The record is a 206-nucleotide RNA sequence from Thiopseudomonas denitrificans, which matches "PhrS" in Rfam. Taxonomically the source falls in Thiopseudomonas (Bacteria, Pseudomonadota, Gammaproteobacteria, Pseudomonadales).
[Rfam]
RNA sequence: GUUGAUUAAGGUUUUAUUACGGGCUGGAGAAUUGUCAUGUUUAUGGAUGUAGUGGUCUUUGCCGGAGUGGGCACAGUGGCAUUGAUGAUUUCGUUUUUCAUCGGGUUGUAUUUUUUCGUCAAAAAAGCCGAGGAGCGCAAAUCCUGAUUUUUUGACAUGCAGUGCAUGCAAGGCUAUUUGGGCGACUCCGGUCGCCCUUUUUUUGU
Numbered sequence: 001g002u003u004g005a006u007u008a009a010g011g012u013u014u015u016a017u018u019a020c021g022g023g024c025u026g027g028a029g030a031a032u033u034g035u036c037a038u039g040u041u042u043a044u045g046g047a048u049g050u051a052g053u054g055g056u057c058u059u060u061g062c063c064g065g066a067g068u069g070g071g072c073a074c075a076g077u078g079g080c081a082u083u084g085a086u087g088a089u090u091u092c093g094u095u096u097u098u099c100a101u102c103g104g105g106u107u108g109u110a111u112u113u114u115u116u117c118g119u120c121a122a123a124a125a126a127g128c129c130g131a132g133g134a135g136c137g138c139a140a141a142u143c144c145u146g147a148u149u150u151u152u153u154g155a156c157a158u159g160c161a162g163u164g165c166a167u168g169c170a171a172g173g174c175u176a177u178u179u180g181g182g183c184g185a186c187u188c189c190g191g192u193c194g195c196c197c198u199u200u201u202u203u204u205g206u
Stems, first nucleotide, its partner, number of pairs: 011102001013100001052062003079090001082087001164174002167172001180197007